[Rfam]
RNA sequence: UCGGCUCCGGUUCACGUCCGCGCACGCGGGCGACCCGGCGGCU
Numbered sequence: 001u002c003g004g005c006u007c008c009g010g011u012u013c014a015c016g017u018c019c020g021c022g023c024a025c026g027c028g029g030g031c032g033a034c035c036c037g038g039c040g041g042c043u
Stems, first nucleotide, its partner, number of pairs: 003043003007038004015032007
The record is a 43-nucleotide sequence, which matches "L31-Actinobacteria ribosomal protein leader" in Rfam. By type it is a cis-regulatory leader.